A member of the RNA family "flg-Rhizobiales RNA" from Rhodopseudomonas palustris, 139 nucleotides long. The sequence is in the family's curated seed alignment. The base pairs follow the family's consensus structure, which is taken from published work.

RNA sequence: UGAGCCGCGCGCUUGGGAGAGCGCCUGCGGUUCGCACGAUCCGCCACCGGUCUGGGAGGGCUUGGCGGCGGGUCAUUCAAGGGAGAACCACCGAUGGAGAAUGCUCUUCUCGUCGGACUGUCACGGCAGGUCGUGCUCG
Number, nucleotide and partner (000 for none) at each position: 001u034002g033003a032004g031005c030006c029007g028008c027009g024010c023011g022012c021013u020014u019015g000016g000017g000018a000019g014020a013021g012022c011023g010024c009025c000026u000027g008028c007029g006030g005031u004032u003033c002034g001035c000036a000037c000038g074039a073040u072041c071042c070043g069044c000045c000046a000047c000048c000049g062050g061051u060052c059053u058054g000055g000056g000057a000058g053059g052060g051061c050062u049063u000064g000065g000066c000067g000068g000069c043070g042071g041072g040073u039074c038075a000076u000077u000078c000079a000080a000081g000082g000083g000084a000085g000086a000087a000088c000089c000090a000091c116092c115093g114094a113095u112096g000097g111098a110099g109100a108101a107102u000103g000104c000105u000106c000107u101108u100109c099110u098111c097112g095113u094114c093115g092116g091117a000118c000119u000120g000121u000122c000123a000124c000125g000126g000127c000128a000129g000130g000131u000132c000133g000134u000135g000136c000137u000138c000139g000